[Rfam]
RNA sequence: UCCCAAAGCUUUAGUCAGGGCUUCUUCUGCAUUAUUUGUGCAUCAUAGAUCUGGUCCGUUACAGCUUUGGAAAAGCAACAUUGGCACUCGAUGCUCUUGACCUUCGGGUCUUGAGCAGAUAGUUUCUCCGUCUUGGGGGUCUGUCAUGAGAGCCUGACCGUUUCGUGAUGAGUUGAAGUCUGCGUGUCCUUCUUGGAUUAUUUUAUGGCAGUCUUCUUAGUAUUGAAACAUACAUUU
Numbered sequence: 001u002c003c004c005a006a007a008g009c010u011u012u013a014g015u016c017a018g019g020g021c022u023u024c025u026u027c028u029g030c031a032u033u034a035u036u037u038g039u040g041c042a043u044c045a046u047a048g049a050u051c052u053g054g055u056c057c058g059u060u061a062c063a064g065c066u067u068u069g070g071a072a073a074a075g076c077a078a079c080a081u082u083g084g085c086a087c088u089c090g091a092u093g094c095u096c097u098u099g100a101c102c103u104u105c106g107g108g109u110c111u112u113g114a115g116c117a118g119a120u121a122g123u124u125u126c127u128c129c130g131u132c133u134u135g136g137g138g139g140u141c142u143g144u145c146a147u148g149a150g151a152g153c154c155u156g157a158c159c160g161u162u163u164c165g166u167g168a169u170g171a172g173u174u175g176a177a178g179u180c181u182g183c184g185u186g187u188c189c190u191u192c193u194u195g196g197a198u199u200a201u202u203u204u205a206u207g208g209c210a211g212u213c214u215u216c217u218u219a220g221u222a223u224u225g226a227a228a229c230a231u232a233c234a235u236u237u
Stems, first nucleotide, its partner, number of pairs: 003070005018057005026049002028042005081156001083154003089113003093109004118145005125139006160229002163226003175216004180211004186198004

Shown here is a 237-nucleotide RNA from Thyridium curvatum, a member of the family "Small nucleolar RNA snR191". The source organism's lineage runs through Eukaryota, sordariomyceta, Thyridiales, Thyridiaceae and Thyridium. The family's consensus secondary structure was predicted with WAR.